[Rfam]
The record is a 111-nucleotide sequence from Sphingomonadales bacterium EhC05, which matches "TPP riboswitch aptamer (THI element)" in Rfam. The organism belongs to Sphingomonadales, within Bacteria. Vitamin B(1) in its active form thiamin pyrophosphate (TPP) is an essential coenzyme that is synthesised by coupling of pyrimidine and thiazole moieties in bacteria. The match comes from Rfam's covariance-model search (70 bits).
RNA sequence: GACUCAUCCCCGGGGAACCAAUAUAUAAAUAUUGGUUGAGAGCGGAACUGACCGCGACCCGUUGAACCUGAUCCGAUUAAUAUCGGCGGAGGGAGGGAGCGGUUAUUUGGA
Numbered sequence: 001g002a003c004u005c006a007u008c009c010c011c012g013g014g015g016a017a018c019c020a021a022u023a024u025a026u027a028a029a030u031a032u033u034g035g036u037u038g039a040g041a042g043c044g045g046a047a048c049u050g051a052c053c054g055c056g057a058c059c060c061g062u063u064g065a066a067c068c069u070g071a072u073c074c075g076a077u078u079a080a081u082a083u084c085g086g087c088g089g090a091g092g093g094a095g096g097g098a099g100c101g102g103u104u105a106u107u108u109g110g111a
Stems, first nucleotide, its partner, number of pairs: 007098004011061004017036007043054003067092003073086004